RNA: NiCo (Nickel/Cobalt) riboswitch aptamer
RNA sequence: ACAGUACAAACUGAGCAGGCGAUAAACCCGAUAUUGGGUUUAUGGGGCUGGGCCUCGCGGCAACAGGUUGAUCAGAACCUGUGGGACAGUA
Numbered sequence: 001a002c003a004g005u006a007c008a009a010a011c012u013g014a015g016c017a018g019g020c021g022a023u024a025a026a027c028c029c030g031a032u033a034u035u036g037g038g039u040u041u042a043u044g045g046g047g048c049u050g051g052g053c054c055u056c057g058c059g060g061c062a063a064c065a066g067g068u069u070g071a072u073c074a075g076a077a078c079c080u081g082u083g084g085g086a087c088a089g090u091a
Base pairs, nucleotide, nucleotide: 010090011089012088013087016085018049019048020047022043023042024041025040026039027038052061053060054059063082064081065080066079067078068077